[Rfam]
A member of the RNA family "TPP riboswitch aptamer (THI element)" from Pullulanibacillus camelliae, 111 nucleotides long. Rfam links the family to the GO term thiamine pyrophosphate binding. The organism belongs to Pullulanibacillus, within Bacteria. The match comes from Rfam's covariance-model search (88 bits).

RNA sequence: GAAGUCCACUAGGGGAGCCGUUAAAAACGGCUGAGACAAGAAUGUAUCAUUCUUGGACCCUUUGAACCUGAUCUGGUUGAUACCAGCGUAGGAAAGUGGAGCCGGCCUUGU
Numbered sequence: 001g002a003a004g005u006c007c008a009c010u011a012g013g014g015g016a017g018c019c020g021u022u023a024a025a026a027a028c029g030g031c032u033g034a035g036a037c038a039a040g041a042a043u044g045u046a047u048c049a050u051u052c053u054u055g056g057a058c059c060c061u062u063u064g065a066a067c068c069u070g071a072u073c074u075g076g077u078u079g080a081u082a083c084c085a086g087c088g089u090a091g092g093a094a095a096g097u098g099g100a101g102c103c104g105g106c107c108u109u110g111u
Stems, first nucleotide, its partner, number of pairs: 006099005011061004017031005038054007067092004073086004
Dot-bracket structure: .....(((((((((..(((((.....)))))......(((((((...)))))))...)))).....((((..((((......))))..))))..)))))............